Rfam assigns this 133-nucleotide sequence from Chanos chanos to the family "Small nucleolar RNA SNORA77". Rfam classes the family as an H/ACA-box small nucleolar RNA. Gene Ontology terms of the family: nucleolus and RNA processing. ACA63 (SNORA77) is a member of the H/ACA class of snoRNAs that guide the sites of modification of uridines to pseudouridines. The family's consensus secondary structure was predicted with RNAalifold.
Nucleotides: 133
Stems, first nucleotide, its partner, number of pairs: 001057006014044007022036003069124005074117002076114003080110002087105004
Number, partner (000 for none) and nucleotide at each position: 001057g002056c003055a004054g005053a006052c007000u008000c009000a010000c011000u012000c013000u014044g015043u016042u017041c018040c019039a020038g021000u022036c023035u024034g025000c026000u027000c028000u029000g030000a031000a032000g033000c034024c035023a036022g037000c038020c039019u040018g041017g042016a043015a044014c045000u046000u047000u048000u049000u050000c051000u052006g053005u054004c055003u056002g057001c058000u059000a060000g061000a062000g063000a064000a065000a066000c067000u068000c069124u070123c071122a072121g073120a074117a075116u076114g077113u078112a079000a080110c081109g082000c083000a084000u085000g086000a087105g088104c089103u090102u091000g092000u093000c094000c095000g096000u097000u098000c099000g100000u101000u102090a103089g104088g105087c106000a107000g108000g109081u110080g111000c112078u113077g114076c115000u116075a117074u118000g119000u120073u121072c122071u123070g124069g125000a126000a127000c128000a129000u130000u131000c132000u133000g